PhotoRC-II RNA: a 99-nucleotide sequence.

RNA sequence: CAUCCAUUGCAAACUGCUCUCAAACCGAGACCUAUAGGCAGUCUAAUACUUCGUCUCUCAUAUCCAGUAGCGAGGGGUUACUGGAAAUAAGUUUCGCAU
Numbered sequence: 001c002a003u004c005c006a007u008u009g010c011a012a013a014c015u016g017c018u019c020u021c022a023a024a025c026c027g028a029g030a031c032c033u034a035u036a037g038g039c040a041g042u043c044u045a046a047u048a049c050u051u052c053g054u055c056u057c058u059c060a061u062a063u064c065c066a067g068u069a070g071c072g073a074g075g076g077g078u079u080a081c082u083g084g085a086a087a088u089a090a091g092u093u094u095c096g097c098a099u
Stems, first nucleotide, its partner, number of pairs: 013042005019037002027057005063085007